[Rfam]
RNA sequence: CCAAUGUGGAUACCCUGGGAGGUUACUCUUCCAGGCUCUCUCCAGGUGGCAUAGGGAAGCAUAAGGCUCUGCCCCAAGACAGAGCAAUCCUUUUCCACGACAUUGGAGAUAAGCCUGUCCCUUGAGUUUGUACCUACAUAUUCCUAUGGCUUCUCAGAGCCCUUUAGAUAAUGACUGAGGAGACAAAUCAUUCAGGAAACAUCU
Numbered sequence: 001c002c003a004a005u006g007u008g009g010a011u012a013c014c015c016u017g018g019g020a021g022g023u024u025a026c027u028c029u030u031c032c033a034g035g036c037u038c039u040c041u042c043c044a045g046g047u048g049g050c051a052u053a054g055g056g057a058a059g060c061a062u063a064a065g066g067c068u069c070u071g072c073c074c075c076a077a078g079a080c081a082g083a084g085c086a087a088u089c090c091u092u093u094u095c096c097a098c099g100a101c102a103u104u105g106g107a108g109a110u111a112a113g114c115c116u117g118u119c120c121c122u123u124g125a126g127u128u129u130g131u132a133c134c135u136a137c138a139u140a141u142u143c144c145u146a147u148g149g150c151u152u153c154u155c156a157g158a159g160c161c162c163u164u165u166a167g168a169u170a171a172u173g174a175c176u177g178a179g180g181a182g183a184c185a186a187a188u189c190a191u192u193c194a195g196g197a198a199a200c201a202u203c204u
Base pairs, nucleotide, nucleotide: 001106002105003104004103005102006101007100008043009042010041012039014035015034016033018029019028020027021026046098047097048096049095055091056090058088059085062081133196134195135194138191139190150182151181152180153179154178155177159169161167
Dot-bracket structure: ((((((((((.(.(((.((((....))))...)))...).)))..((((.....((.((..(..................)...)..).))...)))).)))))))..........................(((..((..........((((((...(.(.....).).......)))))).......))..)))........
This 204-nucleotide RNA from Cnephaeus nilssonii belongs to the Rfam family "Small nucleolar RNA SNORA73 family". Rfam 15.1 lists 2,326 matches to the family in 660 species. Rfam classes the family as an H/ACA-box small nucleolar RNA. Its family is annotated with nucleolus and RNA processing in the Gene Ontology. Rfam's curators write: U17 (SNORA73A and SNORA73B) also known as E1 belongs to the H/ACA class of small nucleolar RNAs (snoRNAs). Vertebrate U17 is intron-encoded and ranges in length from 200-230 nucleotides, longer than most snoRNAs. It is one of the most abundant snoRNAs in human cells and is essential for the cleavage of pre-rRNA within the 5' external transcribed spacer (ETS). This cleavage leads to the formation of 18S rRNA. Regions of the U17 RNA are complementary to rRNA and act as guides for RNA/RNA interactions, although these regions do not seem to be well conserved between organisms. The source organism's lineage runs through Eukaryota, Vertebrata, Mammalia, Laurasiatheria and Cnephaeus. For this family Rfam cites "5'ETS rRNA processing facilitated by four small RNAs: U14, E3, U17, and U3" (Enright et al., RNA, 1996). Pairs were carried over by alignment from the consensus structure, which is taken from published work.